[Rfam]
Rfam assigns this 80-nucleotide RNA from Bacillus sp. MUM 116 to the family "ZMP/ZTP riboswitch aptamer (pfl RNA motif)". NCBI's taxonomy places the organism under Bacteria, Bacillati, Caryophanales, Bacillaceae, Bacillus.
RNA sequence: AAGGCUAUGUGUAACUGGCGAAGCGCGGAGAACCGUGAGGGAGCACAUAGUGUCGACAGCCGUUCGCCUGGGCAGAGGUA
Numbered sequence: 001a002a003g004g005c006u007a008u009g010u011g012u013a014a015c016u017g018g019c020g021a022a023g024c025g026c027g028g029a030g031a032a033c034c035g036u037g038a039g040g041g042a043g044c045a046c047a048u049a050g051u052g053u054c055g056a057c058a059g060c061c062g063u064u065c066g067c068c069u070g071g072g073c074a075g076a077g078g079u080a
Stems, first nucleotide, its partner, number of pairs: 004051009015040002017068005025036004057075001059073003
Dot-bracket structure: ...(((((((((..(([[[[[...((((....))))..))..))))))))).....(.(((..]]]]]..))).).....